[Rfam]
Notes: A member of the RNA family "Small nucleolar RNA R30/Z108" from Actinidia chinensis, 105 nucleotides long. A reference for the family is Marker et al. (2002), "Experimental RNomics. Identification of 140 Candidates for Small Non-Messenger RNAs in the Plant Arabidopsis thaliana", Curr Biol. Rfam classes the family as a C/D-box small nucleolar RNA. Its Rfam clan is "SNORD100 clan". About the family: snoR30 is a C/D box small nucleolar RNA which acts as a methylation guide for 18S ribosomal RNA in plants. Gene Ontology terms of the family: RNA processing and nucleolus. The family has 6 seed sequences and 626 matches in Rfam 15.1.
RNA sequence: GGAGGUUGCGAUGAGGAUAAUAAAGCUCCCUCUUCUGAUUUGUAAAGUUGAGGACUAAUGCUGGCAGAAUCGAACCUAUGACUUAUUUAUGCCACCACUGAGCAG
Numbered sequence: 001g002g003a004g005g006u007u008g009c010g011a012u013g014a015g016g017a018u019a020a021u022a023a024a025g026c027u028c029c030c031u032c033u034u035c036u037g038a039u040u041u042g043u044a045a046a047g048u049u050g051a052g053g054a055c056u057a058a059u060g061c062u063g064g065c066a067g068a069a070u071c072g073a074a075c076c077u078a079u080g081a082c083u084u085a086u087u088u089a090u091g092c093c094a095c096c097a098c099u100g101a102g103c104a105g
Base pairs, nucleotide, nucleotide: 006105007104008103009102